[Rfam]
RNA: Neisseria metabolic switch regulator b (RcoF1/NgncR163)
Organism: Neisseria arctica
RNA sequence: CCGUUAAGUUGCUUAGCGCAGCUUAACUUUCUCCUCUAUUUCUCCUUUGUAGACUUGGCGCGCAUCCUUUUUGAUGCGCGUAUUUUU
Numbered sequence: 001c002c003g004u005u006a007a008g009u010u011g012c013u014u015a016g017c018g019c020a021g022c023u024u025a026a027c028u029u030u031c032u033c034c035u036c037u038a039u040u041u042c043u044c045c046u047u048u049g050u051a052g053a054c055u056u057g058g059c060g061c062g063c064a065u066c067c068u069u070u071u072u073g074a075u076g077c078g079c080g081u082a083u084u085u086u087u
Stems, first nucleotide, its partner, number of pairs: 003027009035053005058081009